[Rfam]
RNA: mir-2 microRNA precursor family
RNA sequence: UGGCUGGUCAAAGUGGUUGUGACAGGGUGUGCUAGCUUUCCUAUCACAGCCUGCUUUGAUGAGCUAUA
Numbered sequence: 001u002g003g004c005u006g007g008u009c010a011a012a013g014u015g016g017u018u019g020u021g022a023c024a025g026g027g028u029g030u031g032c033u034a035g036c037u038u039u040c041c042u043a044u045c046a047c048a049g050c051c052u053g054c055u056u057u058g059a060u061g062a063g064c065u066a067u068a
Base pairs, nucleotide, nucleotide: 005062007060008059009058010057011056012055013054015051016050017049018048019047020046021045022044026042027041